[Rfam]
Phenylalanine leader peptide: a 125-nucleotide RNA sequence from Ewingella americana. The base pairs follow the family's consensus structure, which was predicted with CMfinder.
RNA sequence: CAUGAACACCAAACUGUUUUUCUUCGCAUUCUUUUUUACCUUCCCCUGAUUGGGAGGCGUUUCGUCGUGAAAGAAUGAAUGCGAAGACGAACAACGAAGCCUCCUGAAAAGGGGGCUUUUUUUAU
Numbered sequence: 001c002a003u004g005a006a007c008a009c010c011a012a013a014c015u016g017u018u019u020u021u022c023u024u025c026g027c028a029u030u031c032u033u034u035u036u037u038a039c040c041u042u043c044c045c046c047u048g049a050u051u052g053g054g055a056g057g058c059g060u061u062u063c064g065u066c067g068u069g070a071a072a073g074a075a076u077g078a079a080u081g082c083g084a085a086g087a088c089g090a091a092c093a094a095c096g097a098a099g100c101c102u103c104c105u106g107a108a109a110a111g112g113g114g115g116c117u118u119u120u121u122u123u124a125u
Stems, first nucleotide, its partner, number of pairs: 016092004021087011033075002036072002039069001042055004056066004096119010
Background: For this family Rfam cites "Nucleotide sequence of the leader region of the phenylalanine operon of Escherichia coli" (Zurawski et al., Proc Natl Acad Sci U S A, 1978). Rfam 15.1 lists 379 matches to the family in 290 species.